Rfam assigns this 167-nucleotide sequence from Streptomyces lavendulae to the family "c-di-AMP riboswitch aptamer (ydaO/yuaA leader)".
The match comes from Rfam's covariance-model search (50 bits).
NCBI's taxonomy places the organism under Bacteria, Actinomycetes, Kitasatosporales, Streptomycetaceae, Streptomyces lavendulae.
RNA sequence: ACCCGACCAUCGACGCGCGCGGCAGGAGCGGGGGAACCAGGUAAGUCGCCGUUCCGGAUCACUUCGGGGCGGCUCGGGGUGAAGUCGUACGCGCGUUCCACGGGUGCGGCCGGACAUCUCCAGUCCGAACCCGACAGCUCACCUCGCAGGCGCCGGAGAGGAAUGCA
Numbered sequence: 001a002c003c004c005g006a007c008c009a010u011c012g013a014c015g016c017g018c019g020c021g022g023c024a025g026g027a028g029c030g031g032g033g034g035a036a037c038c039a040g041g042u043a044a045g046u047c048g049c050c051g052u053u054c055c056g057g058a059u060c061a062c063u064u065c066g067g068g069g070c071g072g073c074u075c076g077g078g079g080u081g082a083a084g085u086c087g088u089a090c091g092c093g094c095g096u097u098c099c100a101c102g103g104g105u106g107c108g109g110c111c112g113g114a115c116a117u118c119u120c121c122a123g124u125c126c127g128a129a130c131c132c133g134a135c136a137g138c139u140c141a142c143c144u145c146g147c148a149g150g151c152g153c154c155g156g157a158g159a160g161g162a163a164u165g166c167a
Stems, first nucleotide, its partner, number of pairs: 003026002028147006038076001077132003085109006112126004